[Rfam]
RNA sequence: AUGCUCAUGUAAUCGCUGCAUAUAAAUGCAGAGGAAAGUCCAUGCUCACACAGACUGAGAUGUCAGUAGUGUUCGUGCUUGAUGAAUUCAUAAGUCAAGGUAGCUUUUAUGCUAACGGCAGAAAACAUUCCUAAGUCAAAAAUGAUAUGGAAUUAUUCUUUAAAGUGCCACAGUGACGUAGCUGGAGUGGAAACACUCUGGGUGGAACGAGGUAAACCCCACGAGUGAGCAACCCAAAUAAUGGUAGGGGCAUCCUUUAGUAGGGAAUUCAACCGAAACAGGGACAAGUUUUAACUUGUAGAUAGAUGAUUACAACCGGAGUACGAGGUUGACCACCGUUUGCAGUACUAUGGUACAGAACAUGGCUUAUCGAG
Numbered sequence: 001a002u003g004c005u006c007a008u009g010u011a012a013u014c015g016c017u018g019c020a021u022a023u024a025a026a027u028g029c030a031g032a033g034g035a036a037a038g039u040c041c042a043u044g045c046u047c048a049c050a051c052a053g054a055c056u057g058a059g060a061u062g063u064c065a066g067u068a069g070u071g072u073u074c075g076u077g078c079u080u081g082a083u084g085a086a087u088u089c090a091u092a093a094g095u096c097a098a099g100g101u102a103g104c105u106u107u108u109a110u111g112c113u114a115a116c117g118g119c120a121g122a123a124a125a126c127a128u129u130c131c132u133a134a135g136u137c138a139a140a141a142a143u144g145a146u147a148u149g150g151a152a153u154u155a156u157u158c159u160u161u162a163a164a165g166u167g168c169c170a171c172a173g174u175g176a177c178g179u180a181g182c183u184g185g186a187g188u189g190g191a192a193a194c195a196c197u198c199u200g201g202g203u204g205g206a207a208c209g210a211g212g213u214a215a216a217c218c219c220c221a222c223g224a225g226u227g228a229g230c231a232a233c234c235c236a237a238a239u240a241a242u243g244g245u246a247g248g249g250g251c252a253u254c255c256u257u258u259a260g261u262a263g264g265g266a267a268u269u270c271a272a273c274c275g276a277a278a279c280a281g282g283g284a285c286a287a288g289u290u291u292u293a294a295c296u297u298g299u300a301g302a303u304a305g306a307u308g309a310u311u312a313c314a315a316c317c318g319g320a321g322u323a324c325g326a327g328g329u330u331g332a333c334c335a336c337c338g339u340u341u342g343c344a345g346u347a348c349u350a351u352g353g354u355a356c357a358g359a360a361c362a363u364g365g366c367u368u369a370u371c372g373a374g
Stems, first nucleotide, its partner, number of pairs: 004374003007370001008314007016031006036368003040365005045229005050067002053064003073224005078099006100116001101114004117219002120159004128152004135146003165217002167213003182201008233249003253283004258278001284299006316353003320349005